TPP riboswitch aptamer (THI element): a 107-nucleotide sequence from Bifidobacterium ramosum. It scores 56 bits against the family's covariance model. Its family is annotated with thiamine pyrophosphate binding in the Gene Ontology.
[Rfam]
RNA sequence: GGUGUAAUGCAGGGGAACCCGGCGACGGGUUGAGAAAGGCCAAGCGCGGCCUGACCCUUAGAACCUGUUGGCCAACACCAGCGAAGGGAGACAUAUCAUGACAUUCG
Numbered sequence: 001g002g003u004g005u006a007a008u009g010c011a012g013g014g015g016a017a018c019c020c021g022g023c024g025a026c027g028g029g030u031u032g033a034g035a036a037a038g039g040c041c042a043a044g045c046g047c048g049g050c051c052u053g054a055c056c057c058u059u060a061g062a063a064c065c066u067g068u069u070g071g072c073c074a075a076c077a078c079c080a081g082c083g084a085a086g087g088g089a090g091a092c093a094u095a096u097c098a099u100g101a102c103a104u105u106c107g
Stems, first nucleotide, its partner, number of pairs: 007094003011058004017030005037052005064087003068081004